This 131-nucleotide RNA sequence from Streptomyces sp. Ru71 belongs to the Rfam family "Streptomyces-metH RNA". It scores 92 bits against the family's covariance model.

RNA sequence: CCCGUCCGCCCCGUGGACGCUCUGCCCAUCCUCCAGAAGACCCGGUUAGGCUGGCGCCGUGCGCCUGGCCGGAAAUCCGCCCGGGAAGCCGCAUAGCCGACAGCCGUCGCAUCCAAGGGAGCCCCUCCAUG
Numbered sequence: 001c002c003c004g005u006c007c008g009c010c011c012c013g014u015g016g017a018c019g020c021u022c023u024g025c026c027c028a029u030c031c032u033c034c035a036g037a038a039g040a041c042c043c044g045g046u047u048a049g050g051c052u053g054g055c056g057c058c059g060u061g062c063g064c065c066u067g068g069c070c071g072g073a074a075a076u077c078c079g080c081c082c083g084g085g086a087a088g089c090c091g092c093a094u095a096g097c098c099g100a101c102a103g104c105c106g107u108c109g110c111a112u113c114c115a116a117g118g119g120a121g122c123c124c125c126u127c128c129a130u131g
Stems, first nucleotide, its partner, number of pairs: 060093004065088002096110002099108003